[Rfam]
RNA sequence: AUAUCAAAAAAGCUGAAUUCCUGUGUAAAGAGCACAGGAUAGGGGGGACCCACUUUUUCGGGGUGAAUCAAGGCAUCUUGCCUUGUAGGGCAAAUAUCCCUUUCUGCCCGAACCCGUCAGCUAACCCCCGAAGCUUUGAAAGGGAGGUUUG
Numbered sequence: 001a002u003a004u005c006a007a008a009a010a011a012g013c014u015g016a017a018u019u020c021c022u023g024u025g026u027a028a029a030g031a032g033c034a035c036a037g038g039a040u041a042g043g044g045g046g047g048a049c050c051c052a053c054u055u056u057u058u059c060g061g062g063g064u065g066a067a068u069c070a071a072g073g074c075a076u077c078u079u080g081c082c083u084u085g086u087a088g089g090g091c092a093a094a095u096a097u098c099c100c101u102u103u104c105u106g107c108c109c110g111a112a113c114c115c116g117u118c119a120g121c122u123a124a125c126c127c128c129c130g131a132a133g134c135u136u137u138g139a140a141a142g143g144g145a146g147g148u149u150u151g
Stems, first nucleotide, its partner, number of pairs: 011135004019039007042129005051060001061115003069085004088109004